The family of this 99-nucleotide RNA from Staphylococcus aureus is "SAM riboswitch aptamer (S box leader)".
The family's consensus secondary structure is taken from published work.
Rfam's curators write: The SAM riboswitch is found upstream of a number of genes which code for proteins involved in methionine or cysteine biosynthesis in Gram-positive bacteria.
[Rfam]
RNA sequence: UUCUUAUUGUGAGAAGUUGAGGGACUUGGCCCUGUGAUACUUCAGCAACCGACUUUAUAGCACGGUGCUAAAACCAACGAGUUACUCGAAUGAUAAGUA
Numbered sequence: 001u002u003c004u005u006a007u008u009g010u011g012a013g014a015a016g017u018u019g020a021g022g023g024a025c026u027u028g029g030c031c032c033u034g035u036g037a038u039a040c041u042u043c044a045g046c047a048a049c050c051g052a053c054u055u056u057a058u059a060g061c062a063c064g065g066u067g068c069u070a071a072a073a074c075c076a077a078c079g080a081g082u083u084a085c086u087c088g089a090a091u092g093a094u095a096a097g098u099a
Base pairs, nucleotide, nucleotide: 001099003097004096005095006094007093008092013043014042015041016040017039021032022031023030026077027076028075029074044069045068046067047066049065050064051061053060054059073091078088079087080086081085